[Rfam]
RNA sequence: GGCUGUUCUCAGGGCGGGGUGAAAUUCCCCACCGGCGGUGAGGGGCCGAAUGUCCCACAGCCCGCGAGCGCCUUCCGGACGCACUGUUCAGAAGGGUCAGCAGAUCUGGUGUAACUCCAGAGCCGACGGUAUAGUCCGGAUGGUAGAGAAUGAAA
Numbered sequence: 001g002g003c004u005g006u007u008c009u010c011a012g013g014g015c016g017g018g019g020u021g022a023a024a025u026u027c028c029c030c031a032c033c034g035g036c037g038g039u040g041a042g043g044g045g046c047c048g049a050a051u052g053u054c055c056c057a058c059a060g061c062c063c064g065c066g067a068g069c070g071c072c073u074u075c076c077g078g079a080c081g082c083a084c085u086g087u088u089c090a091g092a093a094g095g096g097u098c099a100g101c102a103g104a105u106c107u108g109g110u111g112u113a114a115c116u117c118c119a120g121a122g123c124c125g126a127c128g129g130u131a132u133a134g135u136c137c138g139g140a141u142g143g144u145a146g147a148g149a150a151u152g153a154a155a
Stems, first nucleotide, its partner, number of pairs: 004152007017029003031135002033125002035065004060123002068101002105121005127138003
Rfam assigns this 155-nucleotide RNA from Paremcibacter congregatus to the family "FMN riboswitch aptamer (RFN element)". Rfam 15.1 lists 6,230 matches to the family in 5,120 species. The RFN element is a highly conserved domain that is found frequently in the 5'-untranslated regions of prokaryotic mRNAs that encode for flavin mononucleotide (FMN) biosynthesis and transport proteins. This element is a metabolite-dependent riboswitch that directly binds FMN in the absence of proteins. In Bacillus subtilis, the riboswitch most likely controls gene expression by causing premature transcription termination within the 5' untranslated region of the ribDEAHT operon and precluding access to the ribosome-binding site of ypaA mRNA.The FMN riboswitch structure, reported in present an FMN-bound six-stem junction, adopts a butterfly-like scaffold, stapled together by opposingly directed but nearly identically folded peripheral domains. The organism belongs to Paremcibacter, within Bacteria. The base pairs follow the family's consensus structure, which is taken from published work. Its family is annotated with FMN binding in the Gene Ontology.